L13-Bacteroidia ribosomal protein leader: a 73-nucleotide sequence. It is annotated as a cis-regulatory leader.

[Rfam]
RNA sequence: GAGCCCCUUAAAAGGCUCAUUAUCUGCGUGUUAAUAGCUUUUCUCAUUGGCCUGGGAAAGUGGUUAGUGAAUC
Numbered sequence: 001g002a003g004c005c006c007c008u009u010a011a012a013a014g015g016c017u018c019a020u021u022a023u024c025u026g027c028g029u030g031u032u033a034a035u036a037g038c039u040u041u042u043c044u045c046a047u048u049g050g051c052c053u054g055g056g057a058a059a060g061u062g063g064u065u066a067g068u069g070a071a072u073c
Stems, first nucleotide, its partner, number of pairs: 001018005031067005037061003041058006